[Rfam]
RNA sequence: CCAGGGGGCCGGGCAGCCGCGUCAUCGCAAGAUGCCGAGGAAAGUCCGGGCUCCACGAAACAGGGUGGCGGGUAACGCCCGCCGGCCUUCGCGCAAGCGGGGGUCAGGGAAAGUGCCACAGAGAGCAGACCGCCUAUGCGUCGCAAGGCGCAGGCAAGGGUGAAAGGGUGCGGCAAGAGCGCACCGCGCGACCGGCAACGGAAGCGGCACGGCAAACCCCACCCGGAGCAAGACCGAAUAGGGACGGCGCGCCGGGCAACCGGCAGGCGUGUUUCGCGCCAAGGUCUUCGGACCUGCAAUGUCCGGGUUGGUUGCUGGAGCGGCACGGCAACGUGUCGCCGAGAGGAAUGGCUGCCCCCGCCGAUACGGUGCCGAAUGGCAUACCGUCGGCGGGACAGAACCCGGCUUACAGGCCCCCUGGCAAA
Numbered sequence: 001c002c003a004g005g006g007g008g009c010c011g012g013g014c015a016g017c018c019g020c021g022u023c024a025u026c027g028c029a030a031g032a033u034g035c036c037g038a039g040g041a042a043a044g045u046c047c048g049g050g051c052u053c054c055a056c057g058a059a060a061c062a063g064g065g066u067g068g069c070g071g072g073u074a075a076c077g078c079c080c081g082c083c084g085g086c087c088u089u090c091g092c093g094c095a096a097g098c099g100g101g102g103g104u105c106a107g108g109g110a111a112a113g114u115g116c117c118a119c120a121g122a123g124a125g126c127a128g129a130c131c132g133c134c135u136a137u138g139c140g141u142c143g144c145a146a147g148g149c150g151c152a153g154g155c156a157a158g159g160g161u162g163a164a165a166g167g168g169u170g171c172g173g174c175a176a177g178a179g180c181g182c183a184c185c186g187c188g189c190g191a192c193c194g195g196c197a198a199c200g201g202a203a204g205c206g207g208c209a210c211g212g213c214a215a216a217c218c219c220c221a222c223c224c225g226g227a228g229c230a231a232g233a234c235c236g237a238a239u240a241g242g243g244a245c246g247g248c249g250c251g252c253c254g255g256g257c258a259a260c261c262g263g264c265a266g267g268c269g270u271g272u273u274u275c276g277c278g279c280c281a282a283g284g285u286c287u288u289c290g291g292a293c294c295u296g297c298a299a300u301g302u303c304c305g306g307g308u309u310g311g312u313u314g315c316u317g318g319a320g321c322g323g324c325a326c327g328g329c330a331a332c333g334u335g336u337c338g339c340c341g342a343g344a345g346g347a348a349u350g351g352c353u354g355c356c357c358c359c360g361c362c363g364a365u366a367c368g369g370u371g372c373c374g375a376a377u378g379g380c381a382u383a384c385c386g387u388c389g390g391c392g393g394g395a396c397a398g399a400a401c402c403c404g405g406c407u408u409a410c411a412g413g414c415c416c417c418c419u420g421g422c423a424a425a
Stems, first nucleotide, its partner, number of pairs: 001421010011410001012356007020037002023034004042408003046405005051228004060288001063224005068082005083107001084105009108219002113217002115213003130159002132155003137152006167185006186208001187206003192201003232313004242304005282295005320339008
RNA: Bacterial RNase P class A
Organism: Novosphingobium sp. MD-1